Shown here is a 129-nucleotide RNA sequence from Paenibacillus sp. UNC496MF, a member of the family "Guanidine-I riboswitch aptamer".
For this family Rfam cites "New RNA motifs suggest an expanded scope for riboswitches in bacterial genetic control" (Barrick et al., Proc Natl Acad Sci U S A, 2004).
The match comes from Rfam's covariance-model search (77 bits).
The source organism's lineage runs through Bacteria, Bacilli, Caryophanales, Paenibacillaceae and Paenibacillus.
RNA sequence: CGAUAGGCUGUCUAGGGUUCCGUGACCGUUCGCGGUCAGUCUGGUCCAAGAGGCGGCGUAUGGCGCUCCGUCCCGCAAGGCGCGGCCCGGCGGACCCAUAUAACACGGAAGGACAAAAGCCUGGGAGAU
Numbered sequence: 001c002g003a004u005a006g007g008c009u010g011u012c013u014a015g016g017g018u019u020c021c022g023u024g025a026c027c028g029u030u031c032g033c034g035g036u037c038a039g040u041c042u043g044g045u046c047c048a049a050g051a052g053g054c055g056g057c058g059u060a061u062g063g064c065g066c067u068c069c070g071u072c073c074c075g076c077a078a079g080g081c082g083c084g085g086c087c088c089g090g091c092g093g094a095c096c097c098a099u100a101u102a103a104c105a106c107g108g109a110a111g112g113a114c115a116a117a118a119g120c121c122u123g124g125g126a127g128a129u
Stems, first nucleotide, its partner, number of pairs: 007057006015047002020044002022041001023038006058101006104124001106127001110122003